[Rfam]
RNA sequence: CAGGGAUUCCGGGAAGAGACCCUCAUCAGGGGCACCGAAGGGGCAAGCCAUAUGCAGGCGAAUCUCUCAGGUAAAAAGGACCCGGUUUCCGUC
Number, nucleotide and partner (000 for none) at each position: 001c000002a000003g000004g000005g000006a088007u000008u000009c085010c084011g083012g082013g081014a000015a000016g000017a000018g000019a000020c032021c031022c030023u029024c000025a000026u000027c000028a000029g023030g022031g021032g020033c000034a072035c071036c070037g068038a067039a000040g000041g066042g065043g064044c000045a000046a000047g059048c058049c000050a000051u000052a000053u000054g000055c000056a000057g000058g048059c047060g000061a000062a000063u000064c043065u042066c041067u038068c037069a000070g036071g035072u034073a000074a000075a000076a000077a000078g000079g000080a000081c013082c012083c011084g010085g009086u000087u000088u006089c000090c000091g000092u000093c000
The family of this 93-nucleotide RNA sequence from Anaerolinea thermophila is "Glycine riboswitch aptamer". Rfam links the family to the GO term glycine biosynthetic process. The pairing is the family consensus, mapped onto this sequence. A search with the family's covariance model found it, with a score of 58 bits. The source organism's lineage runs through Bacteria, Bacillati, Anaerolineae, Anaerolineales and Anaerolinea thermophila.